The record is a 233-nucleotide part of an RNA from an uncultured Atribacterota bacterium, which matches "Bacterial large subunit ribosomal RNA" in Rfam. It is one of the family's seed sequences.
[Rfam]
Nucleotides: 233
Base pairs, nucleotide, nucleotide: 005090006089007088008087009086010085011084012083013082014081015080016079017078020045021044022043023042026039027038028037049056050055059071060070061069062068093231094230096228100221101220102219103218104217105216109197110196111195112194113193114192115191116190117189118188119187120185122154123153124152125151129146130145131144132143133142134141158182159181160180162179163178164177165176166175199209200208201207
Number, partner (000 for none) and nucleotide at each position: 001000g002000a003000g004000u005090u006089a007088c008087g009086c010085u011084a012083a013082c014081c015080a016079g017078c018000c019000a020045g021044g022043u023042u024000a025000a026039g027038c028037a029000g030000c031000u032000g033000c034000u035000g036000c037028u038027g039026c040000g041000g042023a043022g044021c045020c046000g047000u048000a049056g050055c051000g052000a053000a054000a055050g056049c057000g058000a059071g060070u061069c062068u063000g064000a065000a066000u067000a068062g069061g070060g071059c072000g073000u074000c075000u076000u077000a078017g079016u080015u081014g082013g083012u084011u085010g086009g087008c088007g089006u090005a091000g092000a093231c094230c095000c096228g097000a098000a099000a100221c101220c102219g103218g104217g105216u106000g107000a108000u109197c110196u111195a112194u113193c114192c115191a116190u117189g118188g119187c120185c121000a122154g123153g124152g125151u126000g127000a128000a129146g130145c131144c132143u133142g134141u135000c136000u137000a138000a139000c140000c141134g142133c143132a144131g145130g146129u147000g148000g149000a150000g151125g152124c153123c154122c155000g156000c157000a158182c159181c160180c161000a162179c163178u164177a165176a166175u167000g168000u169000u170000g171000a172000a173000a174000a175166a176165u177164u178163a179162g180160g181159g182158g183000a184000u185120g186000a187119g188118c189117u190116g191115u192114g193113g194112a195111u196110a197109g198000g199209g200208g201207u202000g203000a204000a205000a206000g207201g208200c209199c210000a211000a212000u213000c214000a215000a216105a217104c218103c219102c220101g221100g222000c223000g224000a225000u226000a227000g228096c229000u230094g231093g232000u233000u